[Rfam]
RNA sequence: UCGUUAUCACGAAAGGCGGAGGGAAAGACCCAAUGAAACCUUAGCAACCCUUUAUCUUUAAAGAAGGUGCUACAUUCUACUUUGAUAUUGAAUUUAUUUCGGUAAUUCAAGGAUAGAUAACAC
Number, nucleotide and partner (000 for none) at each position: 001u000002c000003g121004u120005u119006a118007u117008c116009a000010c000011g000012a000013a042014a041015g040016g039017c000018g000019g000020a000021g031022g030023g029024a000025a000026a078027g077028a076029c023030c022031c021032a000033a000034u000035g000036a000037a000038a000039c016040c015041u014042u013043a071044g070045c069046a068047a000048c067049c066050c063051u062052u061053u060054a000055u000056c000057u000058u000059u000060a053061a052062a051063g050064a000065a000066g049067g048068u046069g045070c044071u043072a000073c000074a000075u115076u028077c027078u026079a000080c112081u111082u110083u109084g108085a107086u000087a000088u000089u000090g000091a000092a000093u000094u000095u000096a000097u000098u000099u000100c000101g000102g000103u000104a000105a000106u000107u085108c084109a083110a082111g081112g080113a000114u000115a075116g008117a007118u006119a005120a004121c003122a000123c000
Annotation: A member of the RNA family "SAM riboswitch aptamer (S box leader)" from Flavobacterium micromati, 123 nucleotides long. Pairs were carried over by alignment from the consensus structure, which is taken from published work. The source organism's lineage runs through Bacteria, Pseudomonadati, Flavobacteriales, Flavobacteriaceae and Flavobacterium. Rfam's curators write: The SAM riboswitch is found upstream of a number of genes which code for proteins involved in methionine or cysteine biosynthesis in Gram-positive bacteria. It scores 72 bits against the family's covariance model.